Background: The family of this 403-nucleotide RNA sequence from Rubellimicrobium thermophilum is "Bacterial RNase P class A". The source organism's lineage runs through Bacteria, Pseudomonadati, Rhodobacterales, Rubellimicrobium and Rubellimicrobium thermophilum. Its family is annotated with dimeric ribonuclease P complex, ribonuclease P activity and tRNA processing in the Gene Ontology.
RNA sequence: GCGGAUGGCCGGAUGACCGCGGGCAGCGCUGCCCGAGGAAAGUCCGGACUCCACAAGGCACGGUGCCGGGUAACGCCCGGCCGGGGUAACCCGAGGGAAAGCGCCACAGAGAACAGACCGCCUGCCGGACGCCCCUGACAGGGGCCGGCGGCAAGGGUGAAACGGUGGGGCAAGAGCCCACCGCGGGACGGGUAACCGGACCGGCACGGCAAGCCCCACCGGGAGCAAUGCCGAAUAGGGGUUCCGCGUCGGCCGCCCCGAAGGGGGUGGUCGGCAGGGUCGCCUGAGCCCGAGGAACCCGGGUAGGCAGCACGAGCCCGCCGGCAACGACGGGCCCAGAGGAAUGGUCAUCCAGGGGGGGCAACCCCCCGGACAGAAUCCGGCUUACAGGCCGUCCGCGCCU
Numbered sequence: 001g002c003g004g005a006u007g008g009c010c011g012g013a014u015g016a017c018c019g020c021g022g023g024c025a026g027c028g029c030u031g032c033c034c035g036a037g038g039a040a041a042g043u044c045c046g047g048a049c050u051c052c053a054c055a056a057g058g059c060a061c062g063g064u065g066c067c068g069g070g071u072a073a074c075g076c077c078c079g080g081c082c083g084g085g086g087u088a089a090c091c092c093g094a095g096g097g098a099a100a101g102c103g104c105c106a107c108a109g110a111g112a113a114c115a116g117a118c119c120g121c122c123u124g125c126c127g128g129a130c131g132c133c134c135c136u137g138a139c140a141g142g143g144g145c146c147g148g149c150g151g152c153a154a155g156g157g158u159g160a161a162a163c164g165g166u167g168g169g170g171c172a173a174g175a176g177c178c179c180a181c182c183g184c185g186g187g188a189c190g191g192g193u194a195a196c197c198g199g200a201c202c203g204g205c206a207c208g209g210c211a212a213g214c215c216c217c218a219c220c221g222g223g224a225g226c227a228a229u230g231c232c233g234a235a236u237a238g239g240g241g242u243u244c245c246g247c248g249u250c251g252g253c254c255g256c257c258c259c260g261a262a263g264g265g266g267g268u269g270g271u272c273g274g275c276a277g278g279g280u281c282g283c284c285u286g287a288g289c290c291c292g293a294g295g296a297a298c299c300c301g302g303g304u305a306g307g308c309a310g311c312a313c314g315a316g317c318c319c320g321c322c323g324g325c326a327a328c329g330a331c332g333g334g335c336c337c338a339g340a341g342g343a344a345u346g347g348u349c350a351u352c353c354a355g356g357g358g359g360g361g362c363a364a365c366c367c368c369c370c371g372g373a374c375a376g377a378a379u380c381c382g383g384c385u386u387a388c389a390g391g392c393c394g395u396c397c398g399c400g401c402c403u
Base pairs, nucleotide, nucleotide: 001399002398003397004396005395006394007393008392009391010390011388012352013351014350015349016348017347018346020035021034022033023032024031025030040386041385042384044383045382046381047380048379049225050224051223052222057285058284061221062220063219064218065217066080067079068078069077070076081095082093083092084091085090096216097215101214102213103210104209105208118156119155120152121151122150124149125148126147127146128145164182165181166180167179168178169177183205184203185202186201189198190197191196229309230308231307232306239300240299241298242297243296244295277291278290279289280288316335317334318333319332320331322329323328